The record is a 37-nucleotide RNA sequence from Desulfotalea psychrophila, which matches "CRISPR RNA direct repeat element" in Rfam. The source organism's lineage runs through Bacteria, Thermodesulfobacteriota, Desulfobulbia, Desulfotalea and Desulfotalea psychrophila. The match comes from Rfam's covariance-model search (51 bits).
[Rfam]
RNA sequence: GCUUCAAUGUAAUCACCCCUUGCGAGGUGAUUGACAC
Numbered sequence: 001g002c003u004u005c006a007a008u009g010u011a012a013u014c015a016c017c018c019c020u021u022g023c024g025a026g027g028u029g030a031u032u033g034a035c036a037c
Stems, first nucleotide, its partner, number of pairs: 010033008019024001